Annotation: Potassium channel RNA editing signal: a 114-nucleotide RNA from Notothenia coriiceps. From the family's description: This family represents a group of sequences related to the human potassium channel Kv1.1 hairpin element which directs the efficient modification of an adenosine to inosine by an adenosine deaminase acting on RNA (ADAR). A search with the family's covariance model found it, with a score of 116 bits.
RNA sequence: GUGGGCUACGGGGACAUGCACCCUGUGACCAUCGGGGGGAAGAUCGUGGGGUCUCUCUGUGCCAUCGCUGGUGUGUUGACCAUUGCUCUGCCCGUGCCUGUCAUUGUCUCCAAC
Numbered sequence: 001g002u003g004g005g006c007u008a009c010g011g012g013g014a015c016a017u018g019c020a021c022c023c024u025g026u027g028a029c030c031a032u033c034g035g036g037g038g039g040a041a042g043a044u045c046g047u048g049g050g051g052u053c054u055c056u057c058u059g060u061g062c063c064a065u066c067g068c069u070g071g072u073g074u075g076u077u078g079a080c081c082a083u084u085g086c087u088c089u090g091c092c093c094g095u096g097c098c099u100g101u102c103a104u105u106g107u108c109u110c111c112a113a114c
Base pairs, nucleotide, nucleotide: 001114002113004111005110008107009106010105011104013102014101015100016099018097019096020095021094037077038076040074049063050062
The literature on the family includes a 2004 paper in Nat Struct Mol Biol by Bhalla et al., "Control of human potassium channel inactivation by editing of a small mRNA hairpin".
The base pairs follow the family's consensus structure, which is taken from published work.